[Rfam]
Nucleotides: 073
Base pairs, nucleotide, nucleotide: 012059014057015056016055017054018053021052022051025048026047027046028045030044031043032042033041034040
Number, partner (000 for none) and nucleotide at each position: 001000u002000u003000g004000a005000a006000u007000u008000u009000a010000a011000a012059u013000u014057g015056a016055u017054u018053u019000a020000u021052g022051u023000u024000u025048g026047g027046a028045u029000a030044c031043a032042u033041u034040u035000c036000c037000u038000a039000a040034a041033a042032g043031u044030g045028a046027u047026u048025c049000u050000u051022a052021u053018a054017a055016a056015u057014u058000c059012a060000a061000g062000u063000u064000g065000u066000u067000u068000g069000g070000a071000u072000a073000g